[Rfam]
RNA sequence: UGCCUUGUUGUUCUAACAUACAUAGGCACGUUCCAUUGUGUCUAAACUCAGCAAUAAGGCUACAGAAUGUGACAGGUUAUGCUUCCAUCAUUGUAAGACAAAGUUGCAUUGGUGACAAUGAGACCUGUAAUAACC
Numbered sequence: 001u002g003c004c005u006u007g008u009u010g011u012u013c014u015a016a017c018a019u020a021c022a023u024a025g026g027c028a029c030g031u032u033c034c035a036u037u038g039u040g041u042c043u044a045a046a047c048u049c050a051g052c053a054a055u056a057a058g059g060c061u062a063c064a065g066a067a068u069g070u071g072a073c074a075g076g077u078u079a080u081g082c083u084u085c086c087a088u089c090a091u092u093g094u095a096a097g098a099c100a101a102a103g104u105u106g107c108a109u110u111g112g113u114g115a116c117a118a119u120g121a122g123a124c125c126u127g128u129a130a131u132a133a134c135c
Stems, first nucleotide, its partner, number of pairs: 002060003006056003023044007072128005086114005
A member of the RNA family "Small nucleolar RNA SNORA1" from Salvator merianae, 135 nucleotides long. ACA1 is a member of the H/ACA class of snoRNA that guide the sites of modification of uridines to pseudouridines. Lineage of the source: Eukaryota > Opisthokonta > Vertebrata > Squamata > Salvator.